[Rfam]
RNA: L17-Actino-Proteobacteria ribosomal protein leader
Organism: Streptomyces palmae
Nucleotides: 058
Base pairs, nucleotide, nucleotide: 001024002023003022004021006019007018008017009016028058029057030056032055033054034053035052036051037050038049
Number, partner (000 for none) and nucleotide at each position: 001024c002023c003022g004021c005000c006019a007018g008017g009016a010000c011000a012000c013000c014000a015000g016009u017008c018007c019006u020000c021004g022003c023002g024001g025000u026000a027000a028058c029057u030056g031000a032055c033054a034053c035052c036051g037050g038049u039000a040000c041000c042000u043000g044000g045000u046000a047000c048000g049038g050037c051036c052035g053034g054033u055032g056030c057029a058028g